[Rfam]
RNA sequence: GUAUGGGUCACCGAAAGGUUUCUGGUUACAAACACCAGACAAGACAUGCGUGGUUCGCUUGGCGAGCCACCAACGGUCGGGCCAACUUGGGCCACGCCGAUAGCCUCAACCAGCCGGUUUAAACCGGC
Numbered sequence: 001g002u003a004u005g006g007g008u009c010a011c012c013g014a015a016a017g018g019u020u021u022c023u024g025g026u027u028a029c030a031a032a033c034a035c036c037a038g039a040c041a042a043g044a045c046a047u048g049c050g051u052g053g054u055u056c057g058c059u060u061g062g063c064g065a066g067c068c069a070c071c072a073a074c075g076g077u078c079g080g081g082c083c084a085a086c087u088u089g090g091g092c093c094a095c096g097c098c099g100a101u102a103g104c105c106u107c108a109a110c111c112a113g114c115c116g117g118u119u120u121a122a123a124c125c126g127g128c
Stems, first nucleotide, its partner, number of pairs: 010019003021039006050070008074099003113128006
The family of this 128-nucleotide RNA from Pseudomonas sp. HLS-6 is "Pseudomon-groES RNA".